[Rfam]
Nucleotides: 077
Stems, first nucleotide, its partner, number of pairs: 001068004
Number, partner (000 for none) and nucleotide at each position: 001068g002067a003066g004065a005000a006000a007000u008000g009000a010000g011000g012000a013000g014000a015000a016000c017000a018000g019000c020000u021000a022000a023000c024000a025000g026000c027000c028000u029000g030000a031000u032000g033000u034000c035000c036000u037000a038000g039000u040000g041000a042000a043000g044000a045000c046000u047000g048000u049000u050000c051000u052000a053000a054000u055000c056000c057000a058000a059000c060000u061000c062000u063000g064000a065004u066003c067002u068001c069000a070000c071000a072000c073000u074000g075000a076000a077000u